[Rfam]
RNA sequence: GCCGAUGAGGUUCGAAACCAUCCCUCAAUAAAAAACUAGGAGGCA
Numbered sequence: 001g002c003c004g005a006u007g008a009g010g011u012u013c014g015a016a017a018c019c020a021u022c023c024c025u026c027a028a029u030a031a032a033a034a035a036c037u038a039g040g041a042g043g044c045a
Base pairs, nucleotide, nucleotide: 006027007026008025009024010023016037